Source information: This 196-nucleotide RNA sequence from Chelonoidis abingdonii belongs to the Rfam family "Small nucleolar RNA U3". By type it is a C/D-box small nucleolar RNA. The literature on the family includes a 1999 paper in Mol Cell Biol by Speckmann et al., "Nuclear retention elements of U3 small nucleolar RNA". About the family: Small nucleolar RNAs (snoRNAs) are involved in the processing and modification of rRNA in the nucleolus. Taxonomically the source falls in Chelonoidis nigra species complex (Eukaryota, Gnathostomata, Archelosauria, Cryptodira). Pairs were carried over by alignment from the consensus structure, which is taken from published work. Clan: U3 clan.
RNA sequence: CGGUUUAGACGUUAGACUAUAGCCGUGGGAGGUUGUUUUAACACAAAGUGAUUGGUCUCCCUAGCUAGGAGGAUGAGUUACAGUGCUCUUUCCUGAGUGUAAAGCUAGUAAGCAGUAUUGAUGCAGUUGUCUGUUGUUGAUGAUUUUCUUUCUUCCCUGUGGGGAAGUAGAAGGGAAAGAACACAGACUGAGUAGU
Numbered sequence: 001c002g003g004u005u006u007a008g009a010c011g012u013u014a015g016a017c018u019a020u021a022g023c024c025g026u027g028g029g030a031g032g033u034u035g036u037u038u039u040a041a042c043a044c045a046a047a048g049u050g051a052u053u054g055g056u057c058u059c060c061c062u063a064g065c066u067a068g069g070a071g072g073a074u075g076a077g078u079u080a081c082a083g084u085g086c087u088c089u090u091u092c093c094u095g096a097g098u099g100u101a102a103a104g105c106u107a108g109u110a111a112g113c114a115g116u117a118u119u120g121a122u123g124c125a126g127u128u129g130u131c132u133g134u135u136g137u138u139g140a141u142g143a144u145u146u147u148c149u150u151u152c153u154u155c156c157c158u159g160u161g162g163g164g165a166a167g168u169a170g171a172a173g174g175g176a177a178a179g180a181a182c183a184c185a186g187a188c189u190g191a192g193u194a195g196u
Base pairs, nucleotide, nucleotide: 001025002024003023004022005021006019007018008017033051034050035049037048038047064196065195066194067193083184084183085182087180088179089178090177091176092175093174094173097147099145107135108134109133110132113129114128115127116126150170151169152167153166154165155164156163157162